[Rfam]
RNA sequence: AUCCCUUGGUGAUGGGGUUUCAUCACCACCUCCCUGUUGGACUUGCCCCGGCUUCGGCCGGGGUUUUUUU
Numbered sequence: 001a002u003c004c005c006u007u008g009g010u011g012a013u014g015g016g017g018u019u020u021c022a023u024c025a026c027c028a029c030c031u032c033c034c035u036g037u038u039g040g041a042c043u044u045g046c047c048c049c050g051g052c053u054u055c056g057g058c059c060g061g062g063g064u065u066u067u068u069u070u
Stems, first nucleotide, its partner, number of pairs: 008027007045064008
Overview: The record is a 70-nucleotide sequence from Thalassorhabdomicrobium marinisediminis, which matches "Singlet oxygen resistance RNA X" in Rfam. The base pairs follow the family's consensus structure. The match comes from Rfam's covariance-model search (65 bits). It is annotated as a small RNA. From the family's description: SorX (RSs2461)like SorY is a singlet oxygen induced sRNA that counteracts oxidative stress by targeting mRNA for a transporter in Rhodobacter. It also has an impact on resistance against organic hydroperoxides. The organism belongs to Thalassorhabdomicrobium, within Bacteria. The family has 8 seed sequences and 528 matches in Rfam 15.1.